[Rfam]
RNA sequence: UCAGUUCGGAACCGGUCAACCUCCUCCCUGACCGUUUCUGACCCGCGCCGCCGCAACCUCCUCCCUGCGGUGGGCGCGCAAAACAAAACGGCGACCCGACCUCCUCCCCGGGUCGCCGUUUUGA
Numbered sequence: 001u002c003a004g005u006u007c008g009g010a011a012c013c014g015g016u017c018a019a020c021c022u023c024c025u026c027c028c029u030g031a032c033c034g035u036u037u038c039u040g041a042c043c044c045g046c047g048c049c050g051c052c053g054c055a056a057c058c059u060c061c062u063c064c065c066u067g068c069g070g071u072g073g074g075c076g077c078g079c080a081a082a083a084c085a086a087a088a089c090g091g092c093g094a095c096c097c098g099a100c101c102u103c104c105u106c107c108c109c110g111g112g113u114c115g116c117c118g119u120u121u122u123g124a
Base pairs, nucleotide, nucleotide: 007040008039009038011036013034014033015032016031017030045077046076047075048073049072050071051070052069053068054067088119089118090117091116092115093114094113095112096111097110098109

The record is a 124-nucleotide sequence from Loktanella salsilacus, which matches "Alphaproteobacterial ar14" in Rfam. The source organism's lineage runs through Bacteria, Pseudomonadati, Rhodobacterales, Roseobacteraceae and Loktanella. Rfam describes the family as follows. Smr14C2 was renamed NfeR1 (Nodule Formation Efficiency RNA) highly expressed in salt stress and during the symbiotic interaction on legume roots.